The record is a 104-nucleotide RNA sequence from Paenibacillus donghaensis, which matches "Purine riboswitch aptamer" in Rfam. A search with the family's covariance model found it, with a score of 79 bits. Riboswitches are metabolite binding domains within certain messenger RNAs that serve as precision sensors for their corresponding targets. Rfam links the family to the GO term purine nucleobase biosynthetic process.
[Rfam]
RNA sequence: AACUGUUUAUACUUUAAAACUCAUAUAAUCUUGGGAAUAUGGCCCAUAAGUUUCUACCGGAUAACCACUGAAAUUAUCCGACUAUGAGUGAAAUAGCGCAUCUA
Numbered sequence: 001a002a003c004u005g006u007u008u009a010u011a012c013u014u015u016a017a018a019a020c021u022c023a024u025a026u027a028a029u030c031u032u033g034g035g036a037a038u039a040u041g042g043c044c045c046a047u048a049a050g051u052u053u054c055u056a057c058c059g060g061a062u063a064a065c066c067a068c069u070g071a072a073a074u075u076a077u078c079c080g081a082c083u084a085u086g087a088g089u090g091a092a093a094u095a096g097c098g099c100a101u102c103u104a
Stems, first nucleotide, its partner, number of pairs: 019089007029049001032046004058080007